[Rfam]
RNA sequence: GGUCACCUGGGCCUCAGGUGAACGCCCGGGUCACCUGGGCCUCAGGUGAACGCCCGGGCGUUCACCUGAGGCCCAGGUGACC
Numbered sequence: 001g002g003u004c005a006c007c008u009g010g011g012c013c014u015c016a017g018g019u020g021a022a023c024g025c026c027c028g029g030g031u032c033a034c035c036u037g038g039g040c041c042u043c044a045g046g047u048g049a050a051c052g053c054c055c056g057g058g059c060g061u062u063c064a065c066c067u068g069a070g071g072c073c074c075a076g077g078u079g080a081c082c
Stems, first nucleotide, its partner, number of pairs: 001082009011072002016067015032052001
Epstein-Barr virus stable intronic sequence RNA 2: an 82-nucleotide RNA from Myripristis murdjan. It scores 45 bits against the family's covariance model. NCBI's taxonomy places the organism under Eukaryota, Teleostomi, Actinopterygii, Clupeocephala, Myripristis. For this family Rfam cites "RNA families in Epstein-Barr virus" (Moss et al., RNA Biol, 2014). By type it is a non-coding RNA gene.